[Rfam]
RNA: Selenocysteine transfer RNA
Organism: Sinorhizobium saheli
RNA sequence: GGAAGAGAUACAUGCCCGUUGGCAUGUCCGGACUUCAAAUCCGGGGAGGAGCCGAUAGACGGUCUUUGGUGGGUUCAACCCCACUCUCUUCC
Number, nucleotide and partner (000 for none) at each position: 001g092002g091003a090004a089005g088006a087007g086008a085009u000010a000011c026012a025013u024014g023015c022016c021017c000018g000019u000020u000021g016022g015023c014024a013025u012026g011027u045028c044029c043030g042031g041032a040033c000034u000035u000036c000037a000038a000039a000040u032041c031042c030043g029044g028045g027046g000047a066048g065049g064050a063051g000052c000053c000054g000055a000056u000057a000058g000059a000060c000061g000062g000063u050064c049065u048066u047067u000068g000069g000070u083071g082072g081073g080074u000075u000076c000077a000078a000079c000080c073081c072082c071083a070084c000085u008086c007087u006088c005089u004090u003091c002092c001